[Rfam]
RNA sequence: GAUUCUAGAUAAGCGCAACCGAAGACAGCAAGCACGCCUAGCGCGUUCAAACGAUGCCCUUGGUAUCAGCUUGCCGAGGAAUGCGUGUCAUAACGUGGAGCCUUAGCCAUAGUAUCGUGUGCUUGUGGGCCCAUGUAUAAAGAUACGUAAUACCUCAUGCCUUCGGUUGCUUCCGAAGGCUUUUUUCUUGCCCUG
Numbered sequence: 001g002a003u004u005c006u007a008g009a010u011a012a013g014c015g016c017a018a019c020c021g022a023a024g025a026c027a028g029c030a031a032g033c034a035c036g037c038c039u040a041g042c043g044c045g046u047u048c049a050a051a052c053g054a055u056g057c058c059c060u061u062g063g064u065a066u067c068a069g070c071u072u073g074c075c076g077a078g079g080a081a082u083g084c085g086u087g088u089c090a091u092a093a094c095g096u097g098g099a100g101c102c103u104u105a106g107c108c109a110u111a112g113u114a115u116c117g118u119g120u121g122c123u124u125g126u127g128g129g130c131c132c133a134u135g136u137a138u139a140a141a142g143a144u145a146c147g148u149a150a151u152a153c154c155u156c157a158u159g160c161c162u163u164c165g166g167u168u169g170c171u172u173c174c175g176a177a178g179g180c181u182u183u184u185u186u187c188u189u190g191c192c193c194u195g
Stems, first nucleotide, its partner, number of pairs: 028074006034046003159180008
The family of this 195-nucleotide sequence from Ktedonospora formicarum is "Ribosomal protein L10 leader".